[Rfam]
RNA sequence: UAAAGAUCAUAUGACUGACGGAAGUGGGAAUAACCACAUGGAGUAUGAUCGGAAAAUGCCGACCGUCUGGGCGUAAAAU
Numbered sequence: 001u002a003a004a005g006a007u008c009a010u011a012u013g014a015c016u017g018a019c020g021g022a023a024g025u026g027g028g029a030a031u032a033a034c035c036a037c038a039u040g041g042a043g044u045a046u047g048a049u050c051g052g053a054a055a056a057u058g059c060c061g062a063c064c065g066u067c068u069g070g071g072c073g074u075a076a077a078a079u
Stems, first nucleotide, its partner, number of pairs: 005050008015040001017067005024037004056074005
Shown here is a 79-nucleotide RNA from Ruminococcaceae bacterium BL-4, a member of the family "ZMP/ZTP riboswitch aptamer (pfl RNA motif)". A search with the family's covariance model found it, with a score of 60 bits. Lineage of the source: Bacteria > Bacillati > Clostridia > Eubacteriales > Oscillospiraceae. The family's consensus secondary structure is taken from published work.